[Rfam]
RNA: Small nucleolar RNA SNORD86
Organism: Rousettus aegyptiacus
RNA sequence: AGUCACAGUGAUGGCUGACCAGGGCUUCCUGACCUCUACAGGCCUCUGCUAUGGGGUGAUAGCCAGUCCUGGUGUCUGAGUGAUU
Numbered sequence: 001a002g003u004c005a006c007a008g009u010g011a012u013g014g015c016u017g018a019c020c021a022g023g024g025c026u027u028c029c030u031g032a033c034c035u036c037u038a039c040a041g042g043c044c045u046c047u048g049c050u051a052u053g054g055g056g057u058g059a060u061a062g063c064c065a066g067u068c069c070u071g072g073u074g075u076c077u078g079a080g081u082g083a084u085u
Stems, first nucleotide, its partner, number of pairs: 001085006010076003018073009027062001030059001032057004039053002041050003